[Rfam]
RNA: Small nucleolar RNA snoR104
RNA sequence: GGGUAUCAUCAAGAGUUAUGAAUGUUUCAUGAUUCAAACUUCCGACAAAAAAGCUGCUGGAGUUCCUGCAUGUAGCUCUUGAGCACGAUCUGCAAGUCUCAAGUUGACAGACAUGCAG
Number, nucleotide and partner (000 for none) at each position: 001g030002g000003g028004u000005a026006u000007c024008a023009u022010c020011a019012a000013g000014a000015g000016u000017u000018a000019u011020g010021a000022a009023u008024g007025u000026u005027u000028c003029a000030u001031g000032a000033u000034u000035c000036a000037a000038a000039c000040u000041u000042c000043c000044g000045a000046c000047a000048a000049a000050a000051a000052a000053g000054c000055u111056g000057c000058u000059g000060g000061a000062g000063u000064u000065c000066c000067u000068g097069c096070a000071u094072g093073u092074a091075g090076c000077u088078c087079u000080u000081g000082a000083g000084c000085a000086c000087g078088a077089u000090c075091u074092g073093c072094a071095a000096g069097u068098c000099u000100c000101a000102a000103g000104u000105u000106g000107a000108c000109a000110g000111a055112c000113a000114u000115g000116c000117a000118g000